[Rfam]
RNA sequence: GACUUAGUCUCUCGAGCAAGCUUAAGCCGAUAGGUGUAGGCGCAGCGAAAGCGAGUCUGAAUAGGGCGAUUUAGUUCGAGGAUUAGACCCGAAACCAAGUGAUCUAGCCAUGUGCAGGCUGAAGGUGAGGUAACACUCACUGGAGGGCCGAACCCACGUCUGUUGAAAAAGACGGGGAUGACGUGUGGCUAGGGGUGAAAGGCCAAUCAAACUUGGAAAUAGCUGGUU
Numbered sequence: 001g002a003c004u005u006a007g008u009c010u011c012u013c014g015a016g017c018a019a020g021c022u023u024a025a026g027c028c029g030a031u032a033g034g035u036g037u038a039g040g041c042g043c044a045g046c047g048a049a050a051g052c053g054a055g056u057c058u059g060a061a062u063a064g065g066g067c068g069a070u071u072u073a074g075u076u077c078g079a080g081g082a083u084u085a086g087a088c089c090c091g092a093a094a095c096c097a098a099g100u101g102a103u104c105u106a107g108c109c110a111u112g113u114g115c116a117g118g119c120u121g122a123a124g125g126u127g128a129g130g131u132a133a134c135a136c137u138c139a140c141u142g143g144a145g146g147g148c149c150g151a152a153c154c155c156a157c158g159u160c161u162g163u164u165g166a167a168a169a170a171g172a173c174g175g176g177g178a179u180g181a182c183g184u185g186u187g188g189c190u191a192g193g194g195g196u197g198a199a200a201g202g203c204c205a206a207u208c209a210a211a212c213u214u215g216g217a218a219a220u221a222g223c224u225g226g227u228u
Stems, first nucleotide, its partner, number of pairs: 005085005011080007020041004026035003045052002055067004088226002091223001095216006104192011115180001117149004124141006153177003157174005194204003
This 228-nucleotide part of an RNA from Glycocaulis alkaliphilus belongs to the Rfam family "Bacterial large subunit ribosomal RNA". The match comes from Rfam's covariance-model search (2750 bits). For this family Rfam cites "Crystal structure of the ribosome at 5.5 A resolution" (Yusupov et al., Science, 2001). The source organism's lineage runs through Bacteria, Pseudomonadati, Pseudomonadota, Maricaulaceae and Glycocaulis.